[Rfam]
RNA sequence: AAAAUAAAUCAUCUUAUCGCCUUUGAGCAAUCAAGGGAGGAAAGUCUGGACAACGUAGAGCAGCGUGCUUCCUAACGGGAAGGUAUUAAUUUGGAGACGAAUUGAUAACAGCAAGUGCAACAGAAAAUUACCGCCAAAUCUCGGUUUGGUAAGGGUGAAAAGGUAGAGUAAGAGACUACCGCUUGUUUGGUGACAAACAGGGCGUAUGUAAACCUCACGUGUUGAAAGACCAAAUAGGCUGACAGUUGUAGGGCUGCUCGCCUGAUGUCAGUGGGUAGGUCGAUAGAGCGUAUCGGUGACGGUGCGUCGAGAUAAAUGAUAAGACUUUUUAGUGAAAUACCUAAAAAUGACAGAAUCCGGCUUAUAGAUUUAUUUUCUAA
Dot-bracket structure: ((((((((((((((((((.(((((((....)))))))....[[[.[[[[[((((...[[[[.((((((((((.....)))))(((((((((((....)))))))))).)((...(((((...........(((((((((....)))))))..)).......(((((.........)))))(((((((((....)))))))).)...)))..)))))))))))))...((((......((((((.......((((.]]]]))))...)))))).....))))......((((((((....))))))))..........)))))))...............................]]]]]]]].).))))))))))....
RNA: Bacterial RNase P class A